[Rfam]
RNA sequence: GUCAACUCCCCAACGCCUAAAGAAGCGGGGGCUCGUAAAAAGCCUUGGUUGACUAGCCUCAGUUGCCAGCACAAAGCUGACGGAGUUUCGUUAGGUAGGCUAUGAUACUCUAGAGUGUUGCUCCUCAAGCUCCAGGCUCUGUCGUACAGGUUUAAACAGUCCUGAAGGGUAGGGACAGUGGCUUGUGCAUGACAAGCCUAUUUAAUGUUGGUGAUGAGCACCUAAC
Numbered sequence: 001g002u003c004a005a006c007u008c009c010c011c012a013a014c015g016c017c018u019a020a021a022g023a024a025g026c027g028g029g030g031g032c033u034c035g036u037a038a039a040a041a042g043c044c045u046u047g048g049u050u051g052a053c054u055a056g057c058c059u060c061a062g063u064u065g066c067c068a069g070c071a072c073a074a075a076g077c078u079g080a081c082g083g084a085g086u087u088u089c090g091u092u093a094g095g096u097a098g099g100c101u102a103u104g105a106u107a108c109u110c111u112a113g114a115g116u117g118u119u120g121c122u123c124c125u126c127a128a129g130c131u132c133c134a135g136g137c138u139c140u141g142u143c144g145u146a147c148a149g150g151u152u153u154a155a156a157c158a159g160u161c162c163u164g165a166a167g168g169g170u171a172g173g174g175a176c177a178g179u180g181g182c183u184u185g186u187g188c189a190u191g192a193c194a195a196g197c198c199u200a201u202u203u204a205a206u207g208u209u210g211g212u213g214a215u216g217a218g219c220a221c222c223u224a225a226c
Stems, first nucleotide, its partner, number of pairs: 001053007010031002014027001017022001032042002056212003061087004090206011105142002109136003113132004117222001122220001124218004144188009156179002159176005165170001
Shown here is a 226-nucleotide RNA sequence from Caldicoprobacter faecalis, a member of the family "HNH endonuclease-associated RNA and ORF (HEARO) RNA". Rfam classes the family as a non-coding RNA gene. On this family, see Weinberg et al., Nature 2009: "Exceptional structured noncoding RNAs revealed by bacterial metagenome analysis". A search with the family's covariance model found it, with a score of 111 bits.